[Rfam]
RNA sequence: CAAGAUUCUCGGGGUAAGGUGAAAUUCCUGACCGGCGGUGAUGUUCAAAGCGAACUAAGCCCGCGACUCUCUGCCUCCGCAUUCUGCGGGGGAGAGACUGAUCUGGUGACAAUCCAGAGCCGACGGUAAAGUCCGGAUGGGAGAGGAUCAUA
Dot-bracket structure: ...(((((((......(((.......))).[[((((((....................[[))))...(((((....................)))))....(((((.......)))))]])).(((....]]))).......)))))))...
Numbered sequence: 001c002a003a004g005a006u007u008c009u010c011g012g013g014g015u016a017a018g019g020u021g022a023a024a025u026u027c028c029u030g031a032c033c034g035g036c037g038g039u040g041a042u043g044u045u046c047a048a049a050g051c052g053a054a055c056u057a058a059g060c061c062c063g064c065g066a067c068u069c070u071c072u073g074c075c076u077c078c079g080c081a082u083u084c085u086g087c088g089g090g091g092g093a094g095a096g097a098c099u100g101a102u103c104u105g106g107u108g109a110c111a112a113u114c115c116a117g118a119g120c121c122g123a124c125g126g127u128a129a130a131g132u133c134c135g136g137a138u139g140g141g142a143g144a145g146g147a148u149c150a151u152a
Stems, first nucleotide, its partner, number of pairs: 004149007017029003031132002033122002035064004059120002068097005102118005124135003